[Rfam]
RNA: Alphaproteobacteria transfer-messenger RNA
Organism: Bradyrhizobium sp. STM 3843
RNA sequence: GCACUGUCAUUCUCGGCGCUCGCCGCCUAUAUUGGGGGUGCCGGCUUGCCGGCUAUGGAAAUAAAUCGCCGUCGAAAUAAACCAUUCGGACCCGGGGGCGGUACCCGGCGCCUCCACCCAAGCCCGCGGCUCGUCGCGGGUUUCGGCGGGGGCGAAAUAGGAUCGACGAGGGCGUAAAGGGCGAGCUUUUUCCCGGUAUUGUUCCGCCGUUAUCGGGCUAUUGCAAUAGUUGCCAACGACAACUUUGCUCCGGUUGCUCAGGCUGCGUAACGCAGUUUGAAAGACCACUCUAAAGUCCUAGCGGGUUAAGCUCCGCUAGGCGGGGUUCGGAGGCACCUGGCAACAGAAGCCUCCACU
Numbered sequence: 001g002c003a004c005u006g007u008c009a010u011u012c013u014c015g016g017c018g019c020u021c022g023c024c025g026c027c028u029a030u031a032u033u034g035g036g037g038g039u040g041c042c043g044g045c046u047u048g049c050c051g052g053c054u055a056u057g058g059a060a061a062u063a064a065a066u067c068g069c070c071g072u073c074g075a076a077a078u079a080a081a082c083c084a085u086u087c088g089g090a091c092c093c094g095g096g097g098g099c100g101g102u103a104c105c106c107g108g109c110g111c112c113u114c115c116a117c118c119c120a121a122g123c124c125c126g127c128g129g130c131u132c133g134u135c136g137c138g139g140g141u142u143u144c145g146g147c148g149g150g151g152g153c154g155a156a157a158u159a160g161g162a163u164c165g166a167c168g169a170g171g172g173c174g175u176a177a178a179g180g181g182c183g184a185g186c187u188u189u190u191u192c193c194c195g196g197u198a199u200u201g202u203u204c205c206g207c208c209g210u211u212a213u214c215g216g217g218c219u220a221u222u223g224c225a226a227u228a229g230u231u232g233c234c235a236a237c238g239a240c241a242a243c244u245u246u247g248c249u250c251c252g253g254u255u256g257c258u259c260a261g262g263c264u265g266c267g268u269a270a271c272g273c274a275g276u277u278u279g280a281a282a283g284a285c286c287a288c289u290c291u292a293a294a295g296u297c298c299u300a301g302c303g304g305g306u307u308a309a310g311c312u313c314c315g316c317u318a319g320g321c322g323g324g325g326u327u328c329g330g331a332g333g334c335a336c337c338u339g340g341c342a343a344c345a346g347a348a349g350c351c352u353c354c355a356c357u
Base pairs, nucleotide, nucleotide: 040053041052042051043050044049057193058192059191060190061189068186069185070183071182072181073180082172083171086169087168088167092108093107094106095105096104109154110153111152112151113150114149115148194209195208196207197206199220201218203217204216205215323338324337325336326335329354330353331352332351333350334349